[Rfam]
RNA sequence: GGAGGGGUGCCCGAGUGGCUAAAGGGGGCAGACUGUAAAUCUGUUGGCUUACGCCUACGCUGGUUCGAAUCCAGCCUCCUCCA
Numbered sequence: 001g002g003a004g005g006g007g008u009g010c011c012c013g014a015g016u017g018g019c020u021a022a023a024g025g026g027g028g029c030a031g032a033c034u035g036u037a038a039a040u041c042u043g044u045u046g047g048c049u050u051a052c053g054c055c056u057a058c059g060c061u062g063g064u065u066c067g068a069a070u071c072c073a074g075c076c077u078c079c080u081c082c083a
Stems, first nucleotide, its partner, number of pairs: 001082007010026003028044005059075005